Rfam assigns this 69-nucleotide RNA from Bombyx mori to the family "mir-2774 microRNA precursor family". It scores 57 bits against the family's covariance model. A reference for the family is Liu et al. (2010), "MicroRNAs of Bombyx mori identified by Solexa sequencing", BMC Genomics. The source organism's lineage runs through Eukaryota, Metazoa, Pancrustacea, Hexapoda and Bombyx. The base pairs follow the family's consensus structure, which was predicted with RNAalifold.
[Rfam]
RNA sequence: ACAACGUUUGGACCGCCGCUCUAUCGAACAAUACACCACACGCUCCGUGGAAGAUCUUCCCUUUGUCGU
Numbered sequence: 001a002c003a004a005c006g007u008u009u010g011g012a013c014c015g016c017c018g019c020u021c022u023a024u025c026g027a028a029c030a031a032u033a034c035a036c037c038a039c040a041c042g043c044u045c046c047g048u049g050g051a052a053g054a055u056c057u058u059c060c061c062u063u064u065g066u067c068g069u
Base pairs, nucleotide, nucleotide: 004066005065006064010060011059012058015055017053020051021050022049023048024047026045027044029042
Dot-bracket structure: ...(((...(((..(.(..(((((.((.(............).)).))))).).)..)))...)))...